[Rfam]
RNA: mir-929 microRNA precursor family
Organism: Laodelphax striatellus
RNA sequence: GGAGGUCAAAUUGACUCUAGUAGGGAGUCCUGACUCCAGAUGACUCCCUAAUGGAGUCAGAUUGAUCUCCUA
Numbered sequence: 001g002g003a004g005g006u007c008a009a010a011u012u013g014a015c016u017c018u019a020g021u022a023g024g025g026a027g028u029c030c031u032g033a034c035u036c037c038a039g040a041u042g043a044c045u046c047c048c049u050a051a052u053g054g055a056g057u058c059a060g061a062u063u064g065a066u067c068u069c070c071u072a
Base pairs, nucleotide, nucleotide: 011060012059013058014057015056016055017054018053021050022049023048024047025046026045027044028043029042